ZMP/ZTP riboswitch aptamer (pfl RNA motif): a 78-nucleotide RNA sequence from Natronobacillus azotifigens. The family's consensus secondary structure is taken from published work.
RNA sequence: AAGGCUAUAUGUGACUGGCGAACGCGGAUAACCGCGAGGGAGCAUAUAGUAUCGGAGCCGUUCGCCUGGGCAGAGAUA
Number, nucleotide and partner (000 for none) at each position: 001a000002a000003g000004g050005c049006u048007a047008u046009a045010u044011g043012u042013g000014a000015c039016u038017g066018g065019c064020g063021a062022a000023c000024g035025c034026g033027g032028a000029u000030a000031a000032c027033c026034g025035c024036g000037a000038g016039g015040g000041a000042g012043c011044a010045u009046a008047u007048a006049g005050u004051a000052u000053c000054g000055g000056a000057g071058c070059c069060g000061u000062u021063c020064g019065c018066c017067u000068g000069g059070g058071c057072a000073g000074a000075g000076a000077u000078a000